[Rfam]
Purine riboswitch aptamer: a 101-nucleotide sequence from Ectobacillus ponti. The match comes from Rfam's covariance-model search (84 bits). The base pairs follow the family's consensus structure, which is taken from published work.
RNA sequence: CUUACAUACAUAACAACCACUCAUAUAAUCGCGGGGAUAUGGCCCGCAAGUUUCUACCGACCGCCGUAAACGGAUCGACUAUGAGUGAGGAUGCUUCAUUU
Number, nucleotide and partner (000 for none) at each position: 001c000002u000003u000004a000005c000006a000007u000008a000009c000010a000011u000012a000013a000014c000015a000016a000017c000018c087019a086020c085021u084022c083023a082024u081025a080026u000027a000028a000029u049030c000031g047032c046033g045034g044035g043036g000037a000038u000039a000040u000041g000042g000043c035044c034045c033046g032047c031048a000049a029050g000051u000052u000053u000054c000055u000056a000057c000058c077059g076060a075061c073062c072063g071064c000065c000066g000067u000068a000069a000070a000071c063072g062073g061074a000075u060076c059077g058078a000079c000080u025081a024082u023083g022084a021085g020086u019087g018088a000089g000090g000091a000092u000093g000094c000095u000096u000097c000098a000099u000100u000101u000